RNA sequence: AAUGGCAAGUGAUGAAUAAUCUUUUCCGCUUAUUGAUAUACUGAUUGUUUGUGUUGACAUAAACUCCGCUUAUUAUCUGAUGCCAUU
Numbered sequence: 001a002a003u004g005g006c007a008a009g010u011g012a013u014g015a016a017u018a019a020u021c022u023u024u025u026c027c028g029c030u031u032a033u034u035g036a037u038a039u040a041c042u043g044a045u046u047g048u049u050u051g052u053g054u055u056g057a058c059a060u061a062a063a064c065u066c067c068g069c070u071u072a073u074u075a076u077c078u079g080a081u082g083c084c085a086u087u
Base pairs, nucleotide, nucleotide: 003085004084005083006082007081
RNA: Small nucleolar RNA R16
Organism: Prunus armeniaca